Background: Shown here is a 104-nucleotide RNA sequence, a member of the family "mraW RNA". The family's consensus secondary structure is taken from published work.
RNA sequence: GCAUGCCUGUGCACCGUGGUCUCUGCCCGAACCGACCCUGGCGUACUUCCCCAACGCCAGGUUCGUGUCUUCGGUCAGAGACCAGGGUGCACGGGCGCCGCAGC
Numbered sequence: 001g002c003a004u005g006c007c008u009g010u011g012c013a014c015c016g017u018g019g020u021c022u023c024u025g026c027c028c029g030a031a032c033c034g035a036c037c038c039u040g041g042c043g044u045a046c047u048u049c050c051c052c053a054a055c056g057c058c059a060g061g062u063u064c065g066u067g068u069c070u071u072c073g074g075u076c077a078g079a080g081a082c083c084a085g086g087g088u089g090c091a092c093g094g095g096c097g098c099c100g101c102a103g104c
Base pairs, nucleotide, nucleotide: 010091011090012089013088014087015086018083019082021080022079023078024077025076027074028073029072030071031070032067033065034064035063037061038060039059040058041057042056043055044054